[Rfam]
RNA sequence: CAAAUCCUGUCUGCAAAGGUCUAGCCAACCAGCAGUAGUGAGUCUUGGGUGGGUGUCAGUAAUGGCAGCUGCUAAGCGUAGACAACGAGCAAGUAGGGAUGCAAUGCGAUUGAGUCUCGAAAUGUUAUAAUCCAGAGGGCUGACGUUUUAACUGGUACGGAAAGCAACAUCGGGCAGUUCGCAAAUGGCGAGAAUUUGGCGGCGGUUAUCCGGUGAGCU
Numbered sequence: 001c002a003a004a005u006c007c008u009g010u011c012u013g014c015a016a017a018g019g020u021c022u023a024g025c026c027a028a029c030c031a032g033c034a035g036u037a038g039u040g041a042g043u044c045u046u047g048g049g050u051g052g053g054u055g056u057c058a059g060u061a062a063u064g065g066c067a068g069c070u071g072c073u074a075a076g077c078g079u080a081g082a083c084a085a086c087g088a089g090c091a092a093g094u095a096g097g098g099a100u101g102c103a104a105u106g107c108g109a110u111u112g113a114g115u116c117u118c119g120a121a122a123u124g125u126u127a128u129a130a131u132c133c134a135g136a137g138g139g140c141u142g143a144c145g146u147u148u149u150a151a152c153u154g155g156u157a158c159g160g161a162a163a164g165c166a167a168c169a170u171c172g173g174g175c176a177g178u179u180c181g182c183a184a185a186u187g188g189c190g191a192g193a194a195u196u197u198g199g200c201g202g203c204g205g206u207u208a209u210c211c212g213g214u215g216a217g218c219u
Stems, first nucleotide, its partner, number of pairs: 011035004018030003022191001024189002038086002042083004046078002048073005054067005114219001116217004133213001135211001137209001138203001139165003144159003170202003176196005
Rfam assigns this 219-nucleotide RNA from bacterium D16-54 to the family "Group II catalytic intron D1-D4-6". For this family Rfam cites "The ins and outs of group II introns" (Bonen and Vogel, Trends Genet, 2001).